[Rfam]
RNA sequence: GCCCAAUGUCGCACGUGCCUGUGGGCGUCCCCCGGUCCUCGAAUGCGAGGGUUGCCGGGACGGUACCUGGAGUGAACCUCCGGUCGGUUCCGCUGCUGGCGGAAUCGUGGACGCCUUGAAGCAACGACGGUGCGGGCCUUU
Numbered sequence: 001g002c003c004c005a006a007u008g009u010c011g012c013a014c015g016u017g018c019c020u021g022u023g024g025g026c027g028u029c030c031c032c033c034g035g036u037c038c039u040c041g042a043a044u045g046c047g048a049g050g051g052u053u054g055c056c057g058g059g060a061c062g063g064u065a066c067c068u069g070g071a072g073u074g075a076a077c078c079u080c081c082g083g084u085c086g087g088u089u090c091c092g093c094u095g096c097u098g099g100c101g102g103a104a105u106c107g108u109g110g111a112c113g114c115c116u117u118g119a120a121g122c123a124a125c126g127a128c129g130g131u132g133c134g135g136g137c138c139u140u141u
Base pairs, nucleotide, nucleotide: 001137002136003135004134008128009127010126011125016123017122018121023116024115025114026113027112028111029110030109031059032058033057034056035055037050038049039048040047041046067083068082069081070080071079085107086106087105090102091101092100093099094098
RNA: Alphaproteobacterial sRNA ar45